[Rfam]
Nucleotides: 130
Base pairs, nucleotide, nucleotide: 002057003056004055006053007052008051021040022039023038024037025036068123069122070121071120072119082109084107085106086105087104
Number, partner (000 for none) and nucleotide at each position: 001000c002057g003056c004055c005000u006053u007052g008051u009000u010000a011000u012000u013000c014000a015000g016000c017000a018000g019000g020000c021040a022039g023038a024037c025036a026000g027000c028000u029000c030000c031000c032000u033000g034000u035000g036025u037024g038023u039022c040021u041000c042000a043000a044000u045000u046000g047000a048000a049000c050000a051008a052007c053006g054000g055004g056003g057002c058000c059000a060000g061000a062000a063000g064000a065000g066000c067000a068123a069122c070121a071120g072119g073000u074000u075000g076000u077000g078000c079000u080000u081000u082109c083000c084107u085106c086105a087104c088000u089000g090000u091000a092000a093000u094000g095000c096000c097000c098000a099000u100000u101000g102000c103000a104087g105086u106085g107084g108000u109082g110000a111000c112000a113000a114000u115000g116000a117000g118000a119072c120071c121070u122069g123068u124000a125000a126000c127000a128000a129000c130000c
Small nucleolar RNA SNORA1: a 130-nucleotide sequence from Odontophorus gujanensis. About the family: ACA1 is a member of the H/ACA class of snoRNA that guide the sites of modification of uridines to pseudouridines.